[Rfam]
RNA sequence: AGUAAUAAACUGGCGACGGAAUAAACCUAUUGGACCCGGGGGCGGUGCCCGGCGCCUCCACCUCAGUGUGGCUUGUAAGCCGCCUUGAGGUGGGGGCGAAAUUAGGAUUGACAAGGGUGUAAAGGUCGUUUUUUACUCGGCAUUGUACCACCGUUAUCGGGCUUAUGAAUAGUUGCAAACGACAACUAUGCGGAAGCUCGUCUCGCUGCUUAA
Numbered sequence: 001a002g003u004a005a006u007a008a009a010c011u012g013g014c015g016a017c018g019g020a021a022u023a024a025a026c027c028u029a030u031u032g033g034a035c036c037c038g039g040g041g042g043c044g045g046u047g048c049c050c051g052g053c054g055c056c057u058c059c060a061c062c063u064c065a066g067u068g069u070g071g072c073u074u075g076u077a078a079g080c081c082g083c084c085u086u087g088a089g090g091u092g093g094g095g096g097c098g099a100a101a102u103u104a105g106g107a108u109u110g111a112c113a114a115g116g117g118u119g120u121a122a123a124g125g126u127c128g129u130u131u132u133u134u135a136c137u138c139g140g141c142a143u144u145g146u147a148c149c150a151c152c153g154u155u156a157u158c159g160g161g162c163u164u165a166u167g168a169a170u171a172g173u174u175g176c177a178a179a180c181g182a183c184a185a186c187u188a189u190g191c192g193g194a195a196g197c198u199c200g201u202c203u204c205g206c207u208g209c210u211u212a213a
Stems, first nucleotide, its partner, number of pairs: 001137005014128004026117003030114003036052005053098009138153003

This 213-nucleotide RNA sequence from Candidatus Tokpelaia sp. JSC188 belongs to the Rfam family "permuted transfer-messenger RNA".